Rfam assigns this 129-nucleotide sequence from Molossus molossus to the family "Small nucleolar RNA SNORA11". On this family, see Gu et al., Nucleic Acids Res 2005: "A novel experimental approach for systematic identification of box H/ACA snoRNAs from eukaryotes". Rfam describes the family as follows. U107 (SNORA11) is a member of the H/ACA class of snoRNAs that guide the sites of modification of uridines to pseudouridines. Its family is annotated with RNA processing and nucleolus in the Gene Ontology. Taxonomically the source falls in Molossus (Eukaryota, Metazoa, Tetrapoda, Amniota). The match comes from Rfam's covariance-model search (80 bits). Rfam classes the family as an H/ACA-box small nucleolar RNA. The family's consensus secondary structure was predicted with RNAalifold.
RNA sequence: GGGGUGUGAUCAGAGCAGGGAGCCUGAAGCAUGGCUGCUCUGUUUACAACACAUCCAACAGGAACCUGGGUUUACUCCGCCCGGGUGGCAGGAUACUUUGACCUUCCUGUGCCAUUACGCCCUGUACAU
Numbered sequence: 001g002g003g004g005u006g007u008g009a010u011c012a013g014a015g016c017a018g019g020g021a022g023c024c025u026g027a028a029g030c031a032u033g034g035c036u037g038c039u040c041u042g043u044u045u046a047c048a049a050c051a052c053a054u055c056c057a058a059c060a061g062g063a064a065c066c067u068g069g070g071u072u073u074a075c076u077c078c079g080c081c082c083g084g085g086u087g088g089c090a091g092g093a094u095a096c097u098u099u100g101a102c103c104u105u106c107c108u109g110u111g112c113c114a115u116u117a118c119g120c121c122c123u124g125u126a127c128a129u
Base pairs, nucleotide, nucleotide: 002056003055004054005053006052007051008050013045014044015043016042017041018040019039020038022035023034024033069122070121072119079113082111083110085104087102089100090099091098092096